[Rfam]
RNA sequence: CUGCAUGAGCCGCCGACAACCCGCAUGGCAGGGACGGGGGACCCAAAUCUGGGCGCUGCUCGCAGCGUCCUUGGGGUGAAGCCCUACGACCGUCUGACGGUCGUGAGGCCGAGUGUUCUCCUACUCGAACCCGACAGCUGACCUCGCAGGCGUACUGGAGAGAACUU
Numbered sequence: 001c002u003g004c005a006u007g008a009g010c011c012g013c014c015g016a017c018a019a020c021c022c023g024c025a026u027g028g029c030a031g032g033g034a035c036g037g038g039g040g041a042c043c044c045a046a047a048u049c050u051g052g053g054c055g056c057u058g059c060u061c062g063c064a065g066c067g068u069c070c071u072u073g074g075g076g077u078g079a080a081g082c083c084c085u086a087c088g089a090c091c092g093u094c095u096g097a098c099g100g101u102c103g104u105g106a107g108g109c110c111g112a113g114u115g116u117u118c119u120c121c122u123a124c125u126c127g128a129a130c131c132c133g134a135c136a137g138c139u140g141a142c143c144u145c146g147c148a149g150g151c152g153u154a155c156u157g158g159a160g161a162g163a164a165c166u167u
Stems, first nucleotide, its partner, number of pairs: 011152004020033003035146005044073002074132003082108002085105009111126004
Notes
Shown here is a 167-nucleotide sequence from Sanguibacter sp. Leaf3, a member of the family "c-di-AMP riboswitch aptamer (ydaO/yuaA leader)". Gene Ontology terms of the family: regulation of gene expression and cyclic-di-AMP binding. The match comes from Rfam's covariance-model search (68 bits).